[Rfam]
RNA sequence: GCACGGUGCUUUCUACUCGGAUCGUCCGGCACGUUCCUGCCGGUGGAAGGACACGACA
Numbered sequence: 001g002c003a004c005g006g007u008g009c010u011u012u013c014u015a016c017u018c019g020g021a022u023c024g025u026c027c028g029g030c031a032c033g034u035u036c037c038u039g040c041c042g043g044u045g046g047a048a049g050g051a052c053a054c055g056a057c058a
Base pairs, nucleotide, nucleotide: 009050010049011048012047013046014045015044026043027042028041029040030039031038
Dot-bracket structure: ........(((((((..........((((((......)))))))))))))........
Shown here is a 58-nucleotide RNA from Stackebrandtia endophytica, a member of the family "msiK RNA". The family has 120 seed sequences and 1,374 matches in Rfam 15.1. The source organism's lineage runs through Bacteria, Bacillati, Actinomycetota, Actinomycetes and Stackebrandtia. Pairs were carried over by alignment from the consensus structure, which is taken from published work. The match comes from Rfam's covariance-model search (54 bits).